[Rfam]
Rfam assigns this 120-nucleotide RNA from Channa argus to the family "Small nucleolar RNA SNORA26".
Gene Ontology terms of the family: RNA processing and nucleolus.
Rfam 15.1 lists 1,943 matches to the family in 640 species.
Rfam's curators write: The snoRNA HBI-6 belong to the H/ACA family of snoRNAs, guiding the pseudouridylation of position U4522 if the 28S rRNA. HBI-6 is the human orthologue of mouse MBI-6 snoRNA.
Its Rfam clan is "SNORA27 clan".
The literature on the family includes a 2001 paper in EMBO J by Huttenhofer et al., "RNomics: an experimental approach that identifies 201 candidates for novel, small, non-messenger RNAs in mouse".
Rfam classes the family as an H/ACA-box small nucleolar RNA.

RNA sequence: UUGCCCACCCUGGACCUAUACUUGUCCUUGGUGCCUAACACAGGGGGGCAGAGUAGCUCUCUCAUAAACCUGUGGUGAUGGCACAAAUCCUCACUGCGGAUCCUGUCGGGAGAAACAAGC
Numbered sequence: 001u002u003g004c005c006c007a008c009c010c011u012g013g014a015c016c017u018a019u020a021c022u023u024g025u026c027c028u029u030g031g032u033g034c035c036u037a038a039c040a041c042a043g044g045g046g047g048g049c050a051g052a053g054u055a056g057c058u059c060u061c062u063c064a065u066a067a068a069c070c071u072g073u074g075g076u077g078a079u080g081g082c083a084c085a086a087a088u089c090c091u092c093a094c095u096g097c098g099g100a101u102c103c104u105g106u107c108g109g110g111a112g113a114a115a116c117a118a119g120c
Stems, first nucleotide, its partner, number of pairs: 002050005008045004017037002022031001059112005070099007078091001080089001083088001